PhotoRC-II RNA: a 95-nucleotide RNA. It is annotated as a cis-regulatory element. Pairs were carried over by alignment from the consensus structure, which is taken from published work.
RNA sequence: UAAUGUGUUGUGAACACCCCAUAAACCGAGACCUCUAGGGUGUAUAAACACGUCUCUCAUAUCCUCUCUAAGGGUGAGAGGAGAUAGUAACUCCA
Numbered sequence: 001u002a003a004u005g006u007g008u009u010g011u012g013a014a015c016a017c018c019c020c021a022u023a024a025a026c027c028g029a030g031a032c033c034u035c036u037a038g039g040g041u042g043u044a045u046a047a048a049c050a051c052g053u054c055u056c057u058c059a060u061a062u063c064c065u066c067u068c069u070a071a072g073g074g075u076g077a078g079a080g081g082a083g084a085u086a087g088u089a090a091c092u093c094c095a
Stems, first nucleotide, its partner, number of pairs: 015042005021036001028056005062082007